[Rfam]
RNA: Nitrogen stress-induced RNA 1
RNA sequence: UGGUAGAUGCACCCUAAUUGCUGCCCUCAGUCUUUAGCUGGGGGUUUUUUCU
Number, nucleotide and partner (000 for none) at each position: 001u000002g013003g012004u011005a000006g000007a000008u000009g000010c000011a004012c003013c002014c000015u000016a000017a000018u000019u000020g000021c000022u000023g000024c044025c043026c042027u041028c040029a039030g038031u037032c000033u000034u000035u000036a000037g031038c030039u029040g028041g027042g026043g025044g024045u000046u000047u000048u000049u000050u000051c000052u000